RNA: uxuA RNA
RNA sequence: UAACCACAUUAUCCGACUUAGGUCGGGGUUAGUCAGAGUAGCGGCAUAGUCACCGCUACAUAAUAAGAAGUCGUUUGCACUUAGCUUGA
Numbered sequence: 001u002a003a004c005c006a007c008a009u010u011a012u013c014c015g016a017c018u019u020a021g022g023u024c025g026g027g028g029u030u031a032g033u034c035a036g037a038g039u040a041g042c043g044g045c046a047u048a049g050u051c052a053c054c055g056c057u058a059c060a061u062a063a064u065a066a067g068a069a070g071u072c073g074u075u076u077g078c079a080c081u082u083a084g085c086u087u088g089a
Base pairs, nucleotide, nucleotide: 012027013026014025015024016023017022038059039058040057041056042055043054044053